Shown here is a 51-nucleotide RNA sequence, a member of the family "Xanthine riboswitch aptamer (NMT1 RNA)". The literature on the family includes a 2020 paper in RNA by Yu and Breaker, "A bacterial riboswitch class senses xanthine and uric acid to regulate genes associated with purine oxidation".
RNA sequence: AACGUGAGUAGAAGCUGUCAGGGGGCAACACCCCAGGUCAUUGCUCAGUUA
Numbered sequence: 001a002a003c004g005u006g007a008g009u010a011g012a013a014g015c016u017g018u019c020a021g022g023g024g025g026c027a028a029c030a031c032c033c034c035a036g037g038u039c040a041u042u043g044c045u046c047a048g049u050u051a
Stems, first nucleotide, its partner, number of pairs: 005047006015036001019037001021034003024029001
Rfam links the family to the GO term purine nucleobase binding.